Shown here is a 378-nucleotide RNA sequence from Candidatus Liberibacter americanus, a member of the family "Alphaproteobacteria transfer-messenger RNA". It is annotated as a non-coding RNA gene. The family is grouped with related families in Rfam's "tRNA clan". It scores 271 bits against the family's covariance model.
RNA sequence: UCUCUUCCAAUAUAAGCAAAACAUAUAUAUAAUAUCGUUGUCAUAUAUAUAAUAUAAGUGACUAUGGCGAUAAAUGGUCUGCGUAAUAAGCUUGUUGGACCCGGGGGCGGUACCCGGCGCCUCCACCAUUCUUGAUGAGAAUGAAAAUAAAAUAUUUUUCUCAAUACUAAGGGGGCGAAAUAGGAUAGACAAGAGUGUAAAGGUUGAAAGUUCGCUCGGCAUUGUACCACCGUUAUAGGUCUAAAAAUAUAGUUGCAAAUGACAACUUACCUGGGUUAAGGGUUGCUGCUUAAGCAGUAUACUUUUCUCAACUUAAGUCCUAAUGGGUGGUACCGUUAGGCGAGGUUAGGAGGCACCUGGCAACAGAAAGCCUCCUCU
Number, nucleotide and partner (000 for none) at each position: 001u000002c000003u000004c000005u000006u000007c000008c000009a000010a000011u000012a000013u000014a000015a000016g000017c000018a000019a000020a000021a000022c000023a000024u000025a000026u000027a000028u000029a000030u000031a000032a000033u000034a000035u000036c000037g000038u000039u000040g062041u061042c060043a059044u058045a000046u000047a000048u000049a000050u000051a000052a000053u000054a000055u000056a000057a000058g044059u043060g042061a041062c040063u000064a000065u000066g216067g215068c214069g213070a212071u000072a000073a000074a000075u000076g000077g000078u207079c206080u000081g204082c203083g000084u000085a000086a000087u000088a000089a000090g000091c195092u194093u193094g000095u192096u191097g190098g000099a000100c000101c117102c116103g115104g114105g113106g000107g000108c000109g000110g000111u000112a000113c105114c104115c103116g102117g101118c177119g176120c175121c174122u173123c172124c171125a000126c000127c000128a000129u000130u000131c000132u000133u000134g000135a000136u000137g000138a000139g000140a000141a000142u000143g000144a000145a000146a000147a000148u000149a000150a000151a000152a000153u000154a000155u000156u000157u000158u000159u000160c000161u000162c000163a000164a000165u000166a000167c000168u000169a000170a000171g124172g123173g122174g121175g120176c119177g118178a000179a000180a000181u000182a000183g000184g000185a000186u000187a000188g000189a000190c097191a096192a095193g093194a092195g091196u000197g000198u000199a000200a000201a000202g000203g082204u081205u000206g079207a078208a000209a000210g000211u000212u070213c069214g068215c067216u066217c232218g231219g230220c000221a000222u243223u000224g241225u000226a240227c239228c238229a000230c219231c218232g217233u000234u000235a000236u000237a000238g228239g227240u226241c224242u000243a222244a000245a000246a000247a000248u000249a000250u000251a000252g000253u000254u000255g000256c000257a000258a000259a000260u000261g000262a000263c000264a000265a000266c000267u000268u000269a000270c000271c000272u000273g000274g000275g000276u000277u000278a000279a000280g000281g000282g000283u000284u000285g000286c000287u000288g000289c000290u000291u000292a000293a000294g000295c000296a000297g000298u000299a000300u000301a000302c000303u000304u000305u000306u000307c000308u000309c000310a000311a000312c000313u000314u000315a000316a000317g000318u000319c000320c000321u000322a000323a000324u000325g000326g000327g000328u000329g000330g000331u000332a000333c000334c000335g000336u000337u000338a000339g000340g000341c000342g000343a358344g357345g356346u355347u000348a000349g375350g374351a373352g372353g371354c370355a346356c345357c344358u343359g000360g000361c000362a000363a000364c000365a000366g000367a000368a000369a000370g354371c353372c352373u351374c350375c349376u000377c000378u000